[Rfam]
RNA sequence: AUCUUUCUGGUGUCGGUGAUACUGCAUCAGGAACUGAUUGGAUAAUGCAGUGAGACCAUCAGUUCUUCGUGCAUUGCCAUCAGCAUCGAAAGA
Numbered sequence: 001a002u003c004u005u006u007c008u009g010g011u012g013u014c015g016g017u018g019a020u021a022c023u024g025c026a027u028c029a030g031g032a033a034c035u036g037a038u039u040g041g042a043u044a045a046u047g048c049a050g051u052g053a054g055a056c057c058a059u060c061a062g063u064u065c066u067u068c069g070u071g072c073a074u075u076g077c078c079a080u081c082a083g084c085a086u087c088g089a090a091a092g093a
Stems, first nucleotide, its partner, number of pairs: 023073005029067009039058003
RNA: mir-217 microRNA precursor family
Organism: Synaphobranchus kaupii